[Rfam]
RNA sequence: CUCAGAAAAAGGCAAACCUAUUGAAAAAUAGGGACGCAAAGCCACAGGUCUAAUAUUGGAAUACAAUAAUGACGGCUGGGUCGCCUGA
Numbered sequence: 001c002u003c004a005g006a007a008a009a010a011g012g013c014a015a016a017c018c019u020a021u022u023g024a025a026a027a028a029u030a031g032g033g034a035c036g037c038a039a040a041g042c043c044a045c046a047g048g049u050c051u052a053a054u055a056u057u058g059g060a061a062u063a064c065a066a067u068a069a070u071g072a073c074g075g076c077u078g079g080g081u082c083g084c085c086u087g088a
Stems, first nucleotide, its partner, number of pairs: 012037002017032006041081003045078003048073003055067004